[Rfam]
RNA sequence: CUUCUGCCUGGUUCAAGUAAUCCAGGAUAGGUUGGUUCUUACUACUGCGGCCUAUUCUCGAUUACUUGUGUCAUGAGGAAG
Numbered sequence: 001c002u003u004c005u006g007c008c009u010g011g012u013u014c015a016a017g018u019a020a021u022c023c024a025g026g027a028u029a030g031g032u033u034g035g036u037u038c039u040u041a042c043u044a045c046u047g048c049g050g051c052c053u054a055u056u057c058u059c060g061a062u063u064a065c066u067u068g069u070g071u072c073a074u075g076a077g078g079a080a081g
Stems, first nucleotide, its partner, number of pairs: 002080004007075001009073004014068009024058010
RNA: mir-26 microRNA precursor family